[Rfam]
RNA sequence: GUGUUUUCAUGGUAUUAGAUUUAAGGUUAAAGAGCAAAGAGGCUGUCGUGAUGACAGCCUUUUGUUUUUUU
Numbered sequence: 001g002u003g004u005u006u007u008c009a010u011g012g013u014a015u016u017a018g019a020u021u022u023a024a025g026g027u028u029a030a031a032g033a034g035c036a037a038a039g040a041g042g043c044u045g046u047c048g049u050g051a052u053g054a055c056a057g058c059c060u061u062u063u064g065u066u067u068u069u070u071u
Stems, first nucleotide, its partner, number of pairs: 041059007

The record is a 71-nucleotide RNA from Duncaniella muris, which matches "Bacteroidetes FopS (family of paralogous sRNAs)" in Rfam. Taxonomically the source falls in Duncaniella (Bacteria, Bacteroidota, Bacteroidia, Bacteroidales). A search with the family's covariance model found it, with a score of 68 bits. From the family's description: The RNA-binding protein RbpB and BTncRNA_FopS sRNA are involved in the post-transcription regulation of polysaccharide utilisation loci (PUL). FopS sRNAs function as post-transcriptional repressors by binding to the vicinity of the start codon of the first mRNA of target PUL polycistrons, typically corresponding to the cognate SusC homolog, impeding translation of the respective glycan transporter. Rfam 15.1 lists 822 matches to the family in 178 species.